The record is a 393-nucleotide RNA sequence from Xylanimonas ulmi, which matches "Bacterial RNase P class A" in Rfam. Lineage of the source: Bacteria > Bacillati > Actinomycetota > Promicromonosporaceae > Xylanimonas. Rfam describes the family as follows. Ribonuclease P (RNase P) is a ubiquitous endoribonuclease, found in archaea, bacteria and eukarya as well as chloroplasts and mitochondria. Its best characterised activity is the generation of mature 5'-ends of tRNAs by cleaving the 5'-leader elements of precursor-tRNAs.
[Rfam]
RNA sequence: CGAGUCGGUCGGACGGUCGCGUGGCCCGGAGACGGGCCCCGAGGAACGUCCGGGCUCCGAAGGGCAAGGUGGUGGCUAACGGCCACCCGGGGCGACCCGCGGGACAGUGCCACAGAGAACAGACCGCCACCCGGCGCGAGCCGGGCGGUAAGGGUGAAACGGUGGUGUAAGAGACCACCAGCGCGCCUGGUGACAGGCGCGGCUCGGUAAACCCCACCUGGAGCAAGGUCAGACAGACUGCGGUUGAGGGCGGCCCGCCCGACUCCCUCGGGAGACGCAGUCGGGUAGACCGCUUGAGCCCUGCGGCGACGCAGGGCCUAGAUGGAUGACCGUCACCCGCCUCGGGGCGACCUGAGGCGGGCACAGAACCCGGCGUACAGACCGGCUCGUCCG
Numbered sequence: 001c002g003a004g005u006c007g008g009u010c011g012g013a014c015g016g017u018c019g020c021g022u023g024g025c026c027c028g029g030a031g032a033c034g035g036g037c038c039c040c041g042a043g044g045a046a047c048g049u050c051c052g053g054g055c056u057c058c059g060a061a062g063g064g065c066a067a068g069g070u071g072g073u074g075g076c077u078a079a080c081g082g083c084c085a086c087c088c089g090g091g092g093c094g095a096c097c098c099g100c101g102g103g104a105c106a107g108u109g110c111c112a113c114a115g116a117g118a119a120c121a122g123a124c125c126g127c128c129a130c131c132c133g134g135c136g137c138g139a140g141c142c143g144g145g146c147g148g149u150a151a152g153g154g155u156g157a158a159a160c161g162g163u164g165g166u167g168u169a170a171g172a173g174a175c176c177a178c179c180a181g182c183g184c185g186c187c188u189g190g191u192g193a194c195a196g197g198c199g200c201g202g203c204u205c206g207g208u209a210a211a212c213c214c215c216a217c218c219u220g221g222a223g224c225a226a227g228g229u230c231a232g233a234c235a236g237a238c239u240g241c242g243g244u245u246g247a248g249g250g251c252g253g254c255c256c257g258c259c260c261g262a263c264u265c266c267c268u269c270g271g272g273a274g275a276c277g278c279a280g281u282c283g284g285g286u287a288g289a290c291c292g293c294u295u296g297a298g299c300c301c302u303g304c305g306g307c308g309a310c311g312c313a314g315g316g317c318c319u320a321g322a323u324g325g326a327u328g329a330c331c332g333u334c335a336c337c338c339g340c341c342u343c344g345g346g347g348c349g350a351c352c353u354g355a356g357g358c359g360g361g362c363a364c365a366g367a368a369c370c371c372g373g374c375g376u377a378c379a380g381a382c383c384g385g386c387u388c389g390u391c392c393g
Base pairs, nucleotide, nucleotide: 001389002388003387004386005385006384007383008382009381010380011378012334013333014332015331016330017329018328020041021040023038024037025036026035027034028033046376047375048374050373051372052371053370054369055223056222057221058220062267063266064265067219068218069217070216071215072086073085074084075083076082087101088099089098090097091096102214103213107212108211109208110207111206124153125152126149127148128147130145131144132143133142134141135140161179162178163177164176165175166174181203182201183200184199185198186197187196188195189194227291228290229289230288237281238280239279240278241277242276258272259271260270261269262268298317299316300315301314302313303312304311305310
It is annotated as a ribozyme.